[Rfam]
RNA sequence: GUGACAGAAGAGAGUGAGCACACGUGGUCGCUUCCCCUGCAUGCGUUUCUCAUGCUAGGAGCUACGCGUGCUCACUUCUCUUCUUGUCAC
Numbered sequence: 001g002u003g004a005c006a007g008a009a010g011a012g013a014g015u016g017a018g019c020a021c022a023c024g025u026g027g028u029c030g031c032u033u034c035c036c037c038u039g040c041a042u043g044c045g046u047u048u049c050u051c052a053u054g055c056u057a058g059g060a061g062c063u064a065c066g067c068g069u070g071c072u073c074a075c076u077u078c079u080c081u082u083c084u085u086g087u088c089a090c
Stems, first nucleotide, its partner, number of pairs: 001090007009082001010080003013076009023066003

Source information: This 90-nucleotide RNA from Panicum virgatum belongs to the Rfam family "mir-156 microRNA precursor family". For this family Rfam cites "microRNAs: tiny regulators with great potential" (Ambros, Cell, 2001). This family represents the plant microRNA (miRNA) precursor mir-156. The family's consensus secondary structure was predicted with PFOLD. Lineage of the source: Eukaryota > commelinids > Poales > Paniceae > Panicum sect. Hiantes. The family has 10 seed sequences and 1,401 matches in Rfam 15.1.